[Rfam]
RNA sequence: AAAAUUUAAUAAUUCCGAACAUAUAUUUCUAAAACUCGAAGGUCAUGAGAUAUAUGUCGAUGGGCCUGUCGGGAAACUUCCGGGCCUCCCGUUAUGGAAAGGAAUGAUAUGAAGGCGAUA
Dot-bracket structure: .....(.....(((((..(((((((((((....(((....)))...)))))))))))....(((((((..((....))..)))))))((......))...))))).....).........
Background:
Shown here is a 120-nucleotide RNA from Lentihominibacter hominis, a member of the family "Molybdenum/Tungsten riboswitch aptamer (Moco RNA motif)". Pairs were carried over by alignment from the consensus structure, which is taken from published work. Lineage of the source: Bacteria > Bacillota > Peptostreptococcales > Anaerovoracaceae > Lentihominibacter.